[Rfam]
U8 small nucleolar RNA: a 138-nucleotide sequence from Molothrus ater.
Rfam classes the family as a C/D-box small nucleolar RNA.
Its family is annotated with nucleolus and RNA processing in the Gene Ontology.
For this family Rfam cites "The U8 snoRNA gene family: identification and characterization of distinct, functional U8 genes in Xenopus" (Peculis et al., Gene, 2001).

RNA sequence: UCGUCAGUGCGGUACAUCCUGACCUGCCCCGCUUUGCGGGCAGUACGUGAUGAGCGCGUGCGCGAUGACGAUUACGUGAUUACGUCACGCGUGGGCGGCGCUUGGCUGACGCAACAAGGCCGCGCCGCCCUUCCUGAC
Numbered sequence: 001u002c003g004u005c006a007g008u009g010c011g012g013u014a015c016a017u018c019c020u021g022a023c024c025u026g027c028c029c030c031g032c033u034u035u036g037c038g039g040g041c042a043g044u045a046c047g048u049g050a051u052g053a054g055c056g057c058g059u060g061c062g063c064g065a066u067g068a069c070g071a072u073u074a075c076g077u078g079a080u081u082a083c084g085u086c087a088c089g090c091g092u093g094g095g096c097g098g099c100g101c102u103u104g105g106c107u108g109a110c111g112c113a114a115c116a117a118g119g120c121c122g123c124g125c126c127g128c129c130c131u132u133c134c135u136g137a138c
Stems, first nucleotide, its partner, number of pairs: 024043003028040005070092001074085004096127003101124001103122004